Histidine operon leader: a 124-nucleotide RNA sequence from Candidatus Palibaumannia cicadellinicola. Pairs were carried over by alignment from the consensus structure, which is taken from published work. From the family's description: At least 6 amino acid operons are known to be regulated by attenuation. The organism belongs to Candidatus Palibaumannia, within Bacteria. Gene Ontology term of the family: histidine biosynthetic process. On this family, see Kolter and Yanofsky, Annu Rev Genet 1982: "Attenuation in amino acid biosynthetic operons".

RNA sequence: UCCAUAUCAUCAUACACCUUAGUAGUCUUUCAGGCUAUUGGUGCUGGAAGACAUUUAAAUCUUCCAGUGGCGGAUAAUGUAAUUAUCAUAAGCCCUCGGAAGAAAUCUUCCGAGGUUUUUUUUU
Numbered sequence: 001u002c003c004a005u006a007u008c009a010u011c012a013u014a015c016a017c018c019u020u021a022g023u024a025g026u027c028u029u030u031c032a033g034g035c036u037a038u039u040g041g042u043g044c045u046g047g048a049a050g051a052c053a054u055u056u057a058a059a060u061c062u063u064c065c066a067g068u069g070g071c072g073g074a075u076a077a078u079g080u081a082a083u084u085a086u087c088a089u090a091a092g093c094c095c096u097c098g099g100a101a102g103a104a105a106u107c108u109u110c111c112g113a114g115g116u117u118u119u120u121u122u123u124u
Stems, first nucleotide, its partner, number of pairs: 008043003012038003017034003021030001044067008088121001090119003094115009